[Rfam]
RNA sequence: UCAUAUCCCAGGUUUGUUCGUGGAUCUGACGCCAUCUUAACCGUUCACUGCAAGACCAUCCAAUGGCGUUAGAUUCACGCACAAACUCGCGAUCUGUCU
Numbered sequence: 001u002c003a004u005a006u007c008c009c010a011g012g013u014u015u016g017u018u019c020g021u022g023g024a025u026c027u028g029a030c031g032c033c034a035u036c037u038u039a040a041c042c043g044u045u046c047a048c049u050g051c052a053a054g055a056c057c058a059u060c061c062a063a064u065g066g067c068g069u070u071a072g073a074u075u076c077a078c079g080c081a082c083a084a085a086c087u088c089g090c091g092a093u094c095u096g097u098c099u
Base pairs, nucleotide, nucleotide: 002096003095005093006092007091011087012086013085014084015083016082017081019079020078021077022076023075024074025073026072028070029069030068032066033065043056045054
RNA: MIR403 microRNA precursor family
Organism: Salix brachista